Rfam assigns this 52-nucleotide RNA from Maritimibacter sp. 55A14 to the family "ffh sRNA".
RNA sequence: CAUGUCCGGGAUCGCCCCCCGUCAGCGAGUUUCGCCCACGGGGGAGAUUGGU
Number, nucleotide and partner (000 for none) at each position: 001c000002a000003u000004g000005u000006c000007c000008g000009g000010g000011a000012u000013c000014g000015c000016c044017c043018c042019c041020c040021g039022u038023c000024a000025g035026c034027g033028a032029g000030u000031u000032u028033c027034g026035c025036c000037c000038a022039c021040g020041g019042g018043g017044g016045a000046g000047a000048u000049u000050g000051g000052u000
Lineage of the source: Bacteria > Pseudomonadota > Alphaproteobacteria > Rhodobacterales > Maritimibacter. Rfam classes the family as a small RNA. The family's consensus secondary structure is taken from published work.